[Rfam]
RNA: S15-Flavobacteria ribosomal protein leader
RNA sequence: UAUAUUUGCACGCUGAUUGAAAAUCAAUCAUAUACAUAAAAAUCAUUAAAUAAUAUUGGAAUG
Numbered sequence: 001u002a003u004a005u006u007u008g009c010a011c012g013c014u015g016a017u018u019g020a021a022a023a024u025c026a027a028u029c030a031u032a033u034a035c036a037u038a039a040a041a042a043u044c045a046u047u048a049a050a051u052a053a054u055a056u057u058g059g060a061a062u063g
Base pairs, nucleotide, nucleotide: 014030015029016028017027018026019025